[Rfam]
RNA sequence: GCACGGGGACGACCCCGCCAUUCCGGGGAUCGACGCGGGGACGGCCCUG
Number, nucleotide and partner (000 for none) at each position: 001g000002c000003a000004c017005g016006g015007g014008g013009a000010c000011g000012a000013c008014c007015c006016c005017g004018c000019c000020a000021u000022u000023c000024c000025g000026g000027g000028g000029a000030u000031c000032g000033a000034c000035g000036c049037g048038g047039g046040g045041a000042c000043g000044g000045c040046c039047c038048u037049g036
Rfam assigns this 49-nucleotide RNA from Azospirillum doebereinerae to the family "Guanidine-II riboswitch aptamer (mini-ykkC)". Simpler in structure and has fewer highly conserved nucleotide positions than the ykkC-yxkD leader. Despite this each of its two stem-loop structures directly bind free guanidine. Therefore, mini-ykkC RNA motif represents a distinct class of guanidine-sensing RNAs. NCBI's taxonomy places the organism under Bacteria, Pseudomonadati, Pseudomonadota, Azospirillaceae, Azospirillum. Its family is annotated with regulation of gene expression in the Gene Ontology. The family's consensus secondary structure is taken from published work.